[Rfam]
RNA sequence: GAACACACUAAAGAAUCGCGAUCGAAGCAUCACAUACAAAGAAAGCAAUUUUCUUUGCUUUGCUUUACCAAAAAGCUUUGGGGAAAGUCCCCGGACACGUGGCAGAAAGUGUCGCCCAUAACGCGAUAAAAGCCGAUUGUUCGCGCAAUGCCAUCCCGUUAGAGAUAACGUAUGAGUCAACGAUGAAAUUUCUCUUGAAAUUCUGAGACUUGGAUGGUGCAUGCGGACCGGUCGUGUUACAGUUAUGCGAUUGUACUCGUUCUUUUGUUUGUUAAGAACGACGAUGAGUAUAACUCAACGGGGCUUACUCUUGGAAUGUU
Dot-bracket structure: .((((..((((..((((((..(((((((.............((...((..........))...)).........)))))))...[[[.[[[[........((((.....)))).....................................((((((.(((....................................((...))...)))..)))))).............................)))))).((((((((.....................)))))))).........]]]]]]]....))))..))))

Record summary:
Rfam assigns this 320-nucleotide RNA from Ambispora leptoticha to the family "RNase MRP". RNase MRP is an enzymatically active ribonucleoprotein with two distinct roles in eukaryotes.